[Rfam]
RNA sequence: ACGCUGAAAGGAGGUGGUCCGAACGAUGAUUGAUCAUAGUUGGGCUAGCGAGGUGGCUGUCCGCUAGGACGCCGCGGCUCCGGACUCUGUCCGGACGUCUCGCGACGUUCGGCGAAUCCAAGACAAUCACCGGAACCCCGGGCUGUCGGAAGGCGGGUCCCCCGUCUUUAGUCCAAUCCGACCCUUCUGCCGAGCAGGAGGAAGCAGCCCGGGGUUCUUUGCUG
Numbered sequence: 001a002c003g004c005u006g007a008a009a010g011g012a013g014g015u016g017g018u019c020c021g022a023a024c025g026a027u028g029a030u031u032g033a034u035c036a037u038a039g040u041u042g043g044g045c046u047a048g049c050g051a052g053g054u055g056g057c058u059g060u061c062c063g064c065u066a067g068g069a070c071g072c073c074g075c076g077g078c079u080c081c082g083g084a085c086u087c088u089g090u091c092c093g094g095a096c097g098u099c100u101c102g103c104g105a106c107g108u109u110c111g112g113c114g115a116a117u118c119c120a121a122g123a124c125a126a127u128c129a130c131c132g133g134a135a136c137c138c139c140g141g142g143c144u145g146u147c148g149g150a151a152g153g154c155g156g157g158u159c160c161c162c163c164g165u166c167u168u169u170a171g172u173c174c175a176a177u178c179c180g181a182c183c184c185u186u187c188u189g190c191c192g193a194g195c196a197g198g199a200g201g202a203a204g205c206a207g208c209c210c211g212g213g214g215u216u217c218u219u220u221g222c223u224g
Base pairs, nucleotide, nucleotide: 013061014060015059016058017057018056062114063113064112065111067109068108070107071106073104075102076101077100132218133217134216135215136214137213138212139211140210141209142208143207144206146199147198
RNA: Actinobacteria sRNA Ms_IGR-5
Organism: Streptosporangium becharense